Rfam assigns this 69-nucleotide RNA sequence from Capnocytophaga canimorsus to the family "DUF805 RNA". Rfam 15.1 lists 281 matches to the family in 219 species. The match comes from Rfam's covariance-model search (78 bits).
RNA sequence: CGCGAGUGGAGACCAGAAACCAUCAGAAAAAACGGGGCGAAACCGAAAAGCCUUAUGAGUAGGAAAAAU
Numbered sequence: 001c002g003c004g005a006g007u008g009g010a011g012a013c014c015a016g017a018a019a020c021c022a023u024c025a026g027a028a029a030a031a032a033c034g035g036g037g038c039g040a041a042a043c044c045g046a047a048a049a050g051c052c053u054u055a056u057g058a059g060u061a062g063g064a065a066a067a068a069u
Stems, first nucleotide, its partner, number of pairs: 006023004036052003043063002